[Rfam]
Nucleotides: 083
Stems, first nucleotide, its partner, number of pairs: 001081004
Number, partner (000 for none) and nucleotide at each position: 001081g002080g003079u004078c005000a006000a007000u008000g009000a010000u011000g012000u013000g014000u015000u016000g017000g018000c019000a020000u021000g022000u023000a024000u025000u026000a027000c028000c029000u030000g031000a032000g033000u034000u035000u036000a037000c038000g039000g040000u041000g042000a043000u044000g045000u046000g047000g048000g049000a050000u051000a052000a053000c054000a055000c056000u057000u058000a059000a060000g061000c062000u063000c064000u065000a066000g067000a068000a069000u070000u071000a072000c073000g074000c075000u076000g077000a078004g079003a080002c081001c082000u083000u